[Rfam]
RNA sequence: GAUCGUGUGGACUCACUCAACUUGGGUGUGAUGCUUGCCCGUAUAUAUCGGGUUCCUAGCGGUCAUCACAACCUUUUUGAGUGAGCGAACACGUUC
Numbered sequence: 001g002a003u004c005g006u007g008u009g010g011a012c013u014c015a016c017u018c019a020a021c022u023u024g025g026g027u028g029u030g031a032u033g034c035u036u037g038c039c040c041g042u043a044u045a046u047a048u049c050g051g052g053u054u055c056c057u058a059g060c061g062g063u064c065a066u067c068a069c070a071a072c073c074u075u076u077u078u079g080a081g082u083g084a085g086c087g088a089a090c091a092c093g094u095u096c
Stems, first nucleotide, its partner, number of pairs: 008088001010086001012085009024073002027070007
RNA: mir-67 microRNA precursor family
Organism: Vespula pensylvanica